[Rfam]
RNA sequence: AUCCGGAAACCGCACUCACACACGUACGGCAGGAGCGGGGGACCCAGGAACGCUGCCGAUCCGGAAAUCCGGAACGGCUCGGGGUGAAGUCGCAUUCACACUGCGGCCGGCCAUCUCCAGGCCGAACCCGACAGCUCACCUCGCAGGCGACGGAGAGGAAAUCG
Numbered sequence: 001a002u003c004c005g006g007a008a009a010c011c012g013c014a015c016u017c018a019c020a021c022a023c024g025u026a027c028g029g030c031a032g033g034a035g036c037g038g039g040g041g042a043c044c045c046a047g048g049a050a051c052g053c054u055g056c057c058g059a060u061c062c063g064g065a066a067a068u069c070c071g072g073a074a075c076g077g078c079u080c081g082g083g084g085u086g087a088a089g090u091c092g093c094a095u096u097c098a099c100a101c102u103g104c105g106g107c108c109g110g111c112c113a114u115c116u117c118c119a120g121g122c123c124g125a126a127c128c129c130g131a132c133a134g135c136u137c138a139c140c141u142c143g144c145a146g147g148c149g150a151c152g153g154a155g156a157g158g159a160a161a162u163c164g
Stems, first nucleotide, its partner, number of pairs: 002034003035144006045081001082129003090106004109123004
This 164-nucleotide sequence from Streptomyces sp. ISL-1 belongs to the Rfam family "c-di-AMP riboswitch aptamer (ydaO/yuaA leader)". The organism belongs to Streptomyces, within Bacteria.